[Rfam]
RNA: speF leader
RNA sequence: UGCCGGCUGUCCAAAAGCCGGCGUCACUGAAGAGGCGACUACUUCCUUGCCGGGCGUGCGGUUCGGGUUCUCCCAGACCAAGCGUGGCGUCGACCUGAUCCGAGACGGACAUUCUCCGUCCGAGCGGUCGUCGCGACUACGGCGUGUAUCGAGC
Numbered sequence: 001u002g003c004c005g006g007c008u009g010u011c012c013a014a015a016a017g018c019c020g021g022c023g024u025c026a027c028u029g030a031a032g033a034g035g036c037g038a039c040u041a042c043u044u045c046c047u048u049g050c051c052g053g054g055c056g057u058g059c060g061g062u063u064c065g066g067g068u069u070c071u072c073c074c075a076g077a078c079c080a081a082g083c084g085u086g087g088c089g090u091c092g093a094c095c096u097g098a099u100c101c102g103a104g105a106c107g108g109a110c111a112u113u114c115u116c117c118g119u120c121c122g123a124g125c126g127g128u129c130g131u132c133g134c135g136a137c138u139a140c141g142g143c144g145u146g147u148a149u150c151g152a153g154c
Base pairs, nucleotide, nucleotide: 001023002022003021004020005019006018007017008016034051035050036049037048058147059146060145083108117130118129120127121126